RNA sequence: UGGUCACUACCAAGGCUUUCAGAAUGCAGUUUUUCAGUUGCUAAGAACAUGACCAUAAAAAACUUCCCACUAGGUUUUCUACCUGCUACUUUGCUAGCCCCCAGCCUGUUGUGGGCAUUU
Numbered sequence: 001u002g003g004u005c006a007c008u009a010c011c012a013a014g015g016c017u018u019u020c021a022g023a024a025u026g027c028a029g030u031u032u033u034u035c036a037g038u039u040g041c042u043a044a045g046a047a048c049a050u051g052a053c054c055a056u057a058a059a060a061a062a063c064u065u066c067c068c069a070c071u072a073g074g075u076u077u078u079c080u081a082c083c084u085g086c087u088a089c090u091u092u093g094c095u096a097g098c099c100c101c102c103a104g105c106c107u108g109u110u111g112u113g114g115g116c117a118u119u120u
Stems, first nucleotide, its partner, number of pairs: 003053004011045001026041004066113001068111002073106004085098002
Annotation: The record is a 120-nucleotide RNA sequence from Otolemur garnettii, which matches "Small nucleolar RNA SNORA32" in Rfam. It is annotated as an H/ACA-box small nucleolar RNA. ACA32 is a member of the H/ACA class of snoRNA that guide the sites of modification of uridines to pseudouridines. Lineage of the source: Eukaryota > Opisthokonta > Vertebrata > Mammalia > Otolemur. The base pairs follow the family's consensus structure, which was predicted with RNAfold.